[Rfam]
RNA sequence: UAUCUCCAAGGAUUGUUUUUCUCGCAAAAUUUUUCCUGCGAGGAACGGAAUGGAAUCAGGCUGCCUGCAUGGCAGUUGAUCAUCAUUAUUAAAAAGGAAUCG
Numbered sequence: 001u002a003u004c005u006c007c008a009a010g011g012a013u014u015g016u017u018u019u020u021c022u023c024g025c026a027a028a029a030u031u032u033u034u035c036c037u038g039c040g041a042g043g044a045a046c047g048g049a050a051u052g053g054a055a056u057c058a059g060g061c062u063g064c065c066u067g068c069a070u071g072g073c074a075g076u077u078g079a080u081c082a083u084c085a086u087u088a089u090u091a092a093a094a095a096g097g098a099a100u101c102g
Stems, first nucleotide, its partner, number of pairs: 020043007059077007
gltS RNA: a 102-nucleotide RNA from Vibrio astriarenae. The family's RNA type in Rfam is cis-regulatory element. The family's consensus secondary structure is taken from published work.